RNA sequence: UACCCGAUCCGGGCCCCUCUGACGCGAGCCAAGCCGGCGUUCGCGUGAUGUCGGAUCACUUCC
Numbered sequence: 001u002a003c004c005c006g007a008u009c010c011g012g013g014c015c016c017c018u019c020u021g022a023c024g025c026g027a028g029c030c031a032a033g034c035c036g037g038c039g040u041u042c043g044c045g046u047g048a049u050g051u052c053g054g055a056u057c058a059c060u061u062c063c
Base pairs, nucleotide, nucleotide: 006057007056008055009054010053011052012051022046023045024044025043026042027041028040029039
RNA: terC RNA
Organism: Starkeya nomas